[Rfam]
RNA sequence: UCUUCCGAGGAGCGUUGCAGCGCCCCCUGACUUGUCAUCAAGUCGGCAGCGGGGCGUGAGGCUCGGAACACUUCAACAGCAACGACGCUCAUCCACU
Numbered sequence: 001u002c003u004u005c006c007g008a009g010g011a012g013c014g015u016u017g018c019a020g021c022g023c024c025c026c027c028u029g030a031c032u033u034g035u036c037a038u039c040a041a042g043u044c045g046g047c048a049g050c051g052g053g054g055c056g057u058g059a060g061g062c063u064c065g066g067a068a069c070a071c072u073u074c075a076a077c078a079g080c081a082a083c084g085a086c087g088c089u090c091a092u093c094c095a096c097u
Stems, first nucleotide, its partner, number of pairs: 003068006021056006

The family of this 97-nucleotide sequence from Limnohabitans sp. Rim28 is "SAH (S-adenosyl-L-homocysteine) riboswitch aptamer". Pairs were carried over by alignment from the consensus structure, which is taken from published work.